[Rfam]
RNA sequence: GAGGGUAGGCCCCUCGAAGUCGGUUUGCAGGAGCAGACUUCAAACCACCUCAAGCUGCAAAGGUAAAGAGCUUUUGUGGUGAGCGUUGAGGAAAAGGCAGGACUUGAUCUUGUCAGGU
Numbered sequence: 001g002a003g004g005g006u007a008g009g010c011c012c013c014u015c016g017a018a019g020u021c022g023g024u025u026u027g028c029a030g031g032a033g034c035a036g037a038c039u040u041c042a043a044a045c046c047a048c049c050u051c052a053a054g055c056u057g058c059a060a061a062g063g064u065a066a067a068g069a070g071c072u073u074u075u076g077u078g079g080u081g082a083g084c085g086u087u088g089a090g091g092a093a094a095a096g097g098c099a100g101g102a103c104u105u106g107a108u109c110u111u112g113u114c115a116g117g118u
Stems, first nucleotide, its partner, number of pairs: 001015005016041006023034004046117001048091006054080002057077003061073004096114006

A member of the RNA family "Group II catalytic intron D1-D4-2" from Paenactinomyces guangxiensis, 118 nucleotides long. Gene Ontology term of the family: Group II intron splicing. About the family: Group II introns are found in rRNA, tRNA and mRNA of organelles in fungi, plants and protists, and also in mRNA in bacteria. NCBI's taxonomy places the organism under Bacteria, Bacillota, Bacilli, Caryophanales, Paenactinomyces.